[Rfam]
The record is a 189-nucleotide RNA sequence from Pseudomonas sp. MRSN 12121, which matches "RT-15 RNA" in Rfam. The family's RNA type in Rfam is small RNA. It scores 180 bits against the family's covariance model.

RNA sequence: CCGCGCCCGUUGCAUGAGGGUCACGGCCCUCCUGCCUGUGCGCUGAAUCUGGUCGUGCCGCUGUCCAGUUGGACACCGCCAUGCGCAUCAGAGAUACCGCCGAUCUAAAGCGUUCGGGCUGGUCUCGCGCAGUUUCUCUGCUGAUCGGCAUCGCCUUCGGCAGAGCGACGUAGAUAGCACGGCAGGUCG
Numbered sequence: 001c002c003g004c005g006c007c008c009g010u011u012g013c014a015u016g017a018g019g020g021u022c023a024c025g026g027c028c029c030u031c032c033u034g035c036c037u038g039u040g041c042g043c044u045g046a047a048u049c050u051g052g053u054c055g056u057g058c059c060g061c062u063g064u065c066c067a068g069u070u071g072g073a074c075a076c077c078g079c080c081a082u083g084c085g086c087a088u089c090a091g092a093g094a095u096a097c098c099g100c101c102g103a104u105c106u107a108a109a110g111c112g113u114u115c116g117g118g119c120u121g122g123u124c125u126c127g128c129g130c131a132g133u134u135u136c137u138c139u140g141c142u143g144a145u146c147g148g149c150a151u152c153g154c155c156u157u158c159g160g161c162a163g164a165g166c167g168a169c170g171u172a173g174a175u176a177g178c179a180c181g182g183c184a185g186g187u188c189g
Stems, first nucleotide, its partner, number of pairs: 004042003012035003016031006053182006059078002062075005082131005091126004097122002100117004133168002136165009147155003